The record is a 163-nucleotide sequence from Didymodactylos carnosus, which matches "U12 minor spliceosomal RNA" in Rfam. Rfam links the family to the GO terms pre-mRNA branch point binding, mRNA branch site recognition and U12 snRNP. The pairing is the family consensus, mapped onto this sequence. The match comes from Rfam's covariance-model search (83 bits). Rfam classes the family as a spliceosomal small nuclear RNA. Taxonomically the source falls in Didymodactylos (Eukaryota, Opisthokonta, Metazoa, Spiralia).
RNA sequence: GUGCCUCAAACUUGAUGAGUAAGGAAAAUAACGCUUUCUAGAGAAAUCUAGAGGCAAAUAAUGAAACCUAGUGUUUCGUUCUGAAAUUUUUUCAAGGGGCCCAGGUUACCCGCUGAGUGGUUCAACUACUUUUUGGACUGCUCGUGUCGAAGUGAUCUGCCUC
Numbered sequence: 001g002u003g004c005c006u007c008a009a010a011c012u013u014g015a016u017g018a019g020u021a022a023g024g025a026a027a028a029u030a031a032c033g034c035u036u037u038c039u040a041g042a043g044a045a046a047u048c049u050a051g052a053g054g055c056a057a058a059u060a061a062u063g064a065a066a067c068c069u070a071g072u073g074u075u076u077c078g079u080u081c082u083g084a085a086a087u088u089u090u091u092u093c094a095a096g097g098g099g100c101c102c103a104g105g106u107u108a109c110c111c112g113c114u115g116a117g118u119g120g121u122u123c124a125a126c127u128a129c130u131u132u133u134u135g136g137a138c139u140g141c142u143c144g145u146g147u148c149g150a151a152g153u154g155a156u157c158u159g160c161c162u163c
Base pairs, nucleotide, nucleotide: 004024005023006022008020033055034054035053037052038051039050040049041048057080058079059078096163097162098161099160100159103158104157105156106155107154108153109152112147113146115143116142117141118140119139121137122136123135124134125133